c-di-AMP riboswitch aptamer (ydaO/yuaA leader): a 169-nucleotide sequence from Paenibacillus solanacearum. It scores 67 bits against the family's covariance model.

RNA sequence: AAUUACUAGGAGCCGAAUCGCGCAUUGUUUGCUGUGCGCGUACGGGGGAUGAAACACAUGGGGUGAAUGAAUUGGGCGUCGUCAUGAUAUGAGGCGAUGGCUGCAAUACUAGGGAGCAUCCUCUUCCCGAACCCGACAACUAACCUCGGAGGCAUUCAUAGGAGGGAAA
Numbered sequence: 001a002a003u004u005a006c007u008a009g010g011a012g013c014c015g016a017a018u019c020g021c022g023c024a025u026u027g028u029u030u031g032c033u034g035u036g037c038g039c040g041u042a043c044g045g046g047g048g049a050u051g052a053a054a055c056a057c058a059u060g061g062g063g064u065g066a067a068u069g070a071a072u073u074g075g076g077c078g079u080c081g082u083c084a085u086g087a088u089a090u091g092a093g094g095c096g097a098u099g100g101c102u103g104c105a106a107u108a109c110u111a112g113g114g115a116g117c118a119u120c121c122u123c124u125u126c127c128c129g130a131a132c133c134c135g136a137c138a139a140c141u142a143a144c145c146u147c148g149g150a151g152g153c154a155u156u157c158a159u160a161g162g163a164g165g166g167a168a169a
Base pairs, nucleotide, nucleotide: 012153013152014151019040020039021038022037023036024035025034043148044147045146046145047144053059061134062133063132069109071107072106073105074104112128113127114126115125
Lineage of the source: Bacteria > Bacillati > Bacilli > Paenibacillaceae > Paenibacillus. The family has 106 seed sequences and 7,607 matches in Rfam 15.1.